[Rfam]
The family of this 103-nucleotide sequence from Ramazzottius varieornatus is "Selenocysteine transfer RNA". The family's consensus secondary structure is taken from published work. Taxonomically the source falls in Ramazzottius (Eukaryota, Metazoa, Bilateria, Panarthropoda).
RNA sequence: GCUCGGAUGAACUCCGGUGGUCCGGGGUACAGGCUUCAAUUUUAACAGCUGGAGAUACCUGUGGACGACUGACGUCGUAGCGGUUCGAUUCCGCCUUCCGAGC
Number, nucleotide and partner (000 for none) at each position: 001g103002c102003u101004c100005g099006g098007a097008u000009g095010a000011a000012c027013u026014c025015c024016g023017g022018u000019g000020g000021u000022c017023c016024g015025g014026g013027g012028u063029a062030c061031a060032g059033g058034c000035u000036u000037c000038a000039a000040u000041u000042u000043u000044a000045a000046c000047a000048g000049c000050u000051g000052g000053a000054g000055a000056u000057a000058c033059c032060u031061g030062u029063g028064g000065a078066c077067g076068a075069c074070u000071g000072a000073c000074g069075u068076c067077g066078u065079a000080g094081c093082g092083g091084u000085u000086c000087g000088a000089u000090u000091c083092c082093g081094c080095c009096u000097u007098c006099c005100g004101a003102g002103c001